A member of the RNA family "MIR7486 microRNA precursor family" from Gossypium aridum, 87 nucleotides long. Rfam 15.1 lists 10,132 matches to the family in 36 species. NCBI's taxonomy places the organism under Eukaryota, eudicotyledons, Malvales, Malvoideae, Gossypium. Rfam links the family to the GO terms miRNA-mediated post-transcriptional gene silencing and RISC complex.

[Rfam]
RNA sequence: CACGUCAGCGUGAUUUGCUGACAUGGCAACAAAUCGUGCCCUCUACUACGCGAUUUACUGCCAUGUCAGCAAAUCGCGCUGACAUGG
Numbered sequence: 001c002a003c004g005u006c007a008g009c010g011u012g013a014u015u016u017g018c019u020g021a022c023a024u025g026g027c028a029a030c031a032a033a034u035c036g037u038g039c040c041c042u043c044u045a046c047u048a049c050g051c052g053a054u055u056u057a058c059u060g061c062c063a064u065g066u067c068a069g070c071a072a073a074u075c076g077c078g079c080u081g082a083c084a085u086g087g
Base pairs, nucleotide, nucleotide: 001086002085004083005082006081007080008079009078010077011076012075013074014073015072016071017070018069019068020067021066023064024063025062026061027060028059031056032055033054034053035052036051037050038049